A member of the RNA family "L31-Actinobacteria ribosomal protein leader" from Mycobacterium avium, 46 nucleotides long. Pairs were carried over by alignment from the consensus structure, which is taken from published work. Its Rfam clan is "Ribosomal Protein L31 Leader clan". The literature on the family includes a 2020 paper in BMC Microbiol by Eckert and Weinberg, "Discovery of 20 novel ribosomal leader candidates in bacteria and archaea".
RNA sequence: CAGGUUCCGGUUCACGUCCAGCCCAAGGGCGGGCGACCCGGCGACC
Numbered sequence: 001c002a003g004g005u006u007c008c009g010g011u012u013c014a015c016g017u018c019c020a021g022c023c024c025a026a027g028g029g030c031g032g033g034c035g036a037c038c039c040g041g042c043g044a045c046c
Stems, first nucleotide, its partner, number of pairs: 003046003007041004015035005021030003